[Rfam]
Shown here is a 97-nucleotide RNA sequence from Treponema vincentii, a member of the family "TD-2 RNA". Clan: TD (Treponema denticola) motifs. Pairs were carried over by alignment from the consensus structure, which is taken from published work. Lineage of the source: Bacteria > Pseudomonadati > Treponemataceae > Treponema > Treponema vincentii. It scores 78 bits against the family's covariance model. It is annotated as a small RNA.

RNA sequence: ACGGACAUGGAUGCCCGUGGAAUUGAACAAAAGCAAGUUUUUCGUGAGAAAAACUUGUCGUUGAACAGUGUACACGGACGUACACUGUUCAACAGGC
Numbered sequence: 001a002c003g004g005a006c007a008u009g010g011a012u013g014c015c016c017g018u019g020g021a022a023u024u025g026a027a028c029a030a031a032a033g034c035a036a037g038u039u040u041u042u043c044g045u046g047a048g049a050a051a052a053a054c055u056u057g058u059c060g061u062u063g064a065a066c067a068g069u070g071u072a073c074a075c076g077g078a079c080g081u082a083c084a085c086u087g088u089u090c091a092a093c094a095g096g097c
Stems, first nucleotide, its partner, number of pairs: 001018004006013001034057010060093014